[Rfam]
RNA sequence: GCAUUUGACUCGGGGCGCCUUAAGGCUGAGAUGAACCCGUAUUACCUGAUCUGGAUAAUGCCAGCGUAGGGAAGUCGGUGAACUGGGUA
Numbered sequence: 001g002c003a004u005u006u007g008a009c010u011c012g013g014g015g016c017g018c019c020u021u022a023a024g025g026c027u028g029a030g031a032u033g034a035a036c037c038c039g040u041a042u043u044a045c046c047u048g049a050u051c052u053g054g055a056u057a058a059u060g061c062c063a064g065c066g067u068a069g070g071g072a073a074g075u076c077g078g079u080g081a082a083c084u085g086g087g088u089a
Base pairs, nucleotide, nucleotide: 006077007076008075009074010073011039012038013037014036016033017026018025019024045070046069047068048067051064052063053062054061
RNA: TPP riboswitch aptamer (THI element)
Organism: Moellerella wisconsensis